[Rfam]
Rfam assigns this 184-nucleotide RNA to the family "malK-I RNA". Rfam classes the family as a cis-regulatory element. The base pairs follow the family's consensus structure, which is taken from published work.
Nucleotides: 184
Stems, first nucleotide, its partner, number of pairs: 006042001008040001010038005016032003068082004073172006083107001085105006092099002110136009139165002142162005148157003
Number, partner (000 for none) and nucleotide at each position: 001000g002000a003000u004000c005000a006042g007000g008040c009000c010038g011037g012036c013035a014034g015000c016032c017031u018030a019000c020000u021000c022000c023000a024000u025000u026000c027000u028000u029000a030018u031017a032016g033000u034014c035013u036012g037011u038010c039000a040008g041000g042006c043000u044000a045000a046000u047000a048000a049000a050000g051000u052000a053000a054000g055000g056000a057000g058000g059000a060000c061000c062000a063000a064000a065000u066000a067000u068082c069081c070080g071079c072000g073172c074171g075170g076169c077168u078167u079071g080070c081069g082068g083107u084000a085105c086104a087103g088102c089101a090100g091000u092099g093098u094000g095000g096000a097000g098093a099092c100090c101089u102088g103087c104086u105085g106000c107083a108000a109000c110136g111135u112134c113133c114132g115131c116130g117129g118128a119000g120000u121000u122000c123000c124000g125000c126000u127000c128118u129117c130116c131115g132114c133113g134112g135111g136110c137000a138000a139165g140164g141000g142162g143161u144160c145159a146158c147000a148157g149156g150155c151000a152000g153000a154000g155150g156149c157148c158146g159145u160144g161143a162142c163000a164140c165139c166000a167078a168077a169076g170075c171074c172073g173000a174000u175000c176000a177000c178000u179000a180000u181000g182000g183000c184000g